RNA: mir-6529 microRNA precursor family
RNA sequence: GAGAGAUCAGAGGCGCAGAGUGCGUCAAUGUCAAUGAAGCCUGUGCCUUUUACCUCUUUAA
Dot-bracket structure: (((((...((((((((((...((.(((.......))).))))))))))))...)))))...